[Rfam]
The record is a 128-nucleotide sequence from Candidatus Hakubella thermalkaliphila, which matches "c-di-AMP riboswitch aptamer (ydaO/yuaA leader)" in Rfam. Pairs were carried over by alignment from the consensus structure. The source organism's lineage runs through Bacteria, Bacillati, Actinomycetota, Candidatus Hakubellaceae and Candidatus Hakubella. Gene Ontology terms of the family: regulation of gene expression and cyclic-di-AMP binding.
RNA sequence: CAUAACCGUUAGCCGAAUUCUUCUCCAGGAAGCGGGGGAACCAAUUGCGGGGUGAAGUCCUGGCGAGGACGGGAAACCUUCUAUUCCUGACCCGUCAGCUAACUUCGUAGGCUUGAUAGAAGGAGACU
Number, nucleotide and partner (000 for none) at each position: 001c000002a000003u000004a000005a000006c000007c000008g000009u000010u000011a113012g112013c111014c110015g000016a000017a000018u031019u030020c029021u000022u000023c000024u000025c000026c000027a000028g000029g020030a019031a018032g108033c107034g106035g105036g104037g103038g000039a000040a000041c000042c049043a000044a000045u000046u000047g000048c000049g042050g093051g092052g091053u000054g000055a000056a000057g000058u069059c068060c067061u066062g000063g000064c000065g000066a061067g060068g059069a058070c000071g000072g087073g086074a085075a084076a000077c000078c000079u000080u000081c000082u000083a000084u075085u074086c073087c072088u000089g000090a000091c052092c051093c050094g000095u000096c000097a000098g000099c000100u000101a000102a000103c037104u036105u035106c034107g033108u032109a000110g014111g013112c012113u011114u000115g000116a000117u000118a000119g000120a000121a000122g000123g000124a000125g000126a000127c000128u000